[Rfam]
RNA sequence: UGGCUGGGAUGACAAAAACAUACAUUUCUCGAUCCUGAUACUUGAUAUUUUCAAGGACCAACCUUUGAUGACCUUUGUGCGUGUCUGAGCCAG
Numbered sequence: 001u002g003g004c005u006g007g008g009a010u011g012a013c014a015a016a017a018a019c020a021u022a023c024a025u026u027u028c029u030c031g032a033u034c035c036u037g038a039u040a041c042u043u044g045a046u047a048u049u050u051u052c053a054a055g056g057a058c059c060a061a062c063c064u065u066u067g068a069u070g071a072c073c074u075u076u077g078u079g080c081g082u083g084u085c086u087g088a089g090c091c092a093g
Base pairs, nucleotide, nucleotide: 001092002091003090004089

Notes:
Shown here is a 93-nucleotide RNA from Digitaria exilis, a member of the family "small nucleolar RNA snoR126". The family's consensus secondary structure was predicted with RNAalifold.